RNA sequence: AAACACUUUAAAGAUUCGCUAUAUCGGAGAGCGUCUUUCUAUGCUUCUGCAUAGGAUUAUUGUUUCUCUGGGAAAAGUCCCCGGACAAGUAUGGCAGAGAGUGUCAAACCUUAACCAGGUAACUAGUAUUUGAGUUACGACUGUAUAUUAUUGCUAUUUGGGAUGGUUUGUAGUUACUUUAAGAAAACCAUUUUGUGGUUCUAUUUAAUUAGAACGGUCUAACUGAACGAAGAUGCUCUAUUAUGAGAAGAGUCUAGUUGGAUUUGCAAAGUGUUUUUUUGUAACUAUUUUCUAUCCUUUAUUUAGUAACUAUUCAGUUUCUCUUAUACAUUUGUCACAGCACAGUAAUGCGAAUCGCGUAGUUAUAACUCAUUUACUUUGUAUCUGUAGUUAUCUGCGUUGAUCUCAACGGGGCUUACUCUUGAAAUGUU
Numbered sequence: 001a002a003a004c005a006c007u008u009u010a011a012a013g014a015u016u017c018g019c020u021a022u023a024u025c026g027g028a029g030a031g032c033g034u035c036u037u038u039c040u041a042u043g044c045u046u047c048u049g050c051a052u053a054g055g056a057u058u059a060u061u062g063u064u065u066c067u068c069u070g071g072g073a074a075a076a077g078u079c080c081c082c083g084g085a086c087a088a089g090u091a092u093g094g095c096a097g098a099g100a101g102u103g104u105c106a107a108a109c110c111u112u113a114a115c116c117a118g119g120u121a122a123c124u125a126g127u128a129u130u131u132g133a134g135u136u137a138c139g140a141c142u143g144u145a146u147a148u149u150a151u152u153g154c155u156a157u158u159u160g161g162g163a164u165g166g167u168u169u170g171u172a173g174u175u176a177c178u179u180u181a182a183g184a185a186a187a188c189c190a191u192u193u194u195g196u197g198g199u200u201c202u203a204u205u206u207a208a209u210u211a212g213a214a215c216g217g218u219c220u221a222a223c224u225g226a227a228c229g230a231a232g233a234u235g236c237u238c239u240a241u242u243a244u245g246a247g248a249a250g251a252g253u254c255u256a257g258u259u260g261g262a263u264u265u266g267c268a269a270a271g272u273g274u275u276u277u278u279u280u281g282u283a284a285c286u287a288u289u290u291u292c293u294a295u296c297c298u299u300u301a302u303u304u305a306g307u308a309a310c311u312a313u314u315c316a317g318u319u320u321c322u323c324u325u326a327u328a329c330a331u332u333u334g335u336c337a338c339a340g341c342a343c344a345g346u347a348a349u350g351c352g353a354a355u356c357g358c359g360u361a362g363u364u365a366u367a368a369c370u371c372a373u374u375u376a377c378u379u380u381g382u383a384u385c386u387g388u389a390g391u392u393a394u395c396u397g398c399g400u401u402g403a404u405c406u407c408a409a410c411g412g413g414g415c416u417u418a419c420u421c422u423u424g425a426a427a428u429g430u431u
Base pairs, nucleotide, nucleotide: 002431003430004429005428007426008425009424010423011422014355015354016353017352018351019350024071025070026069027068028067029066030065039054040053041052042051043050044049075417076416077415079414080413081412082411093105094104095103096102199214200213201212202211203210216322217321222318223317224316225315226314227313231311232310234308243298245296246295281291283289284288357400358399359398360397361396362395

About this RNA:
A member of the RNA family "RNase MRP" from Smittium simulii, 431 nucleotides long. It scores 68 bits against the family's covariance model. Rfam describes the family as follows. RNase MRP is an enzymatically active ribonucleoprotein with two distinct roles in eukaryotes. In mitochondria it plays a direct role in the initiation of mitochondrial DNA replication.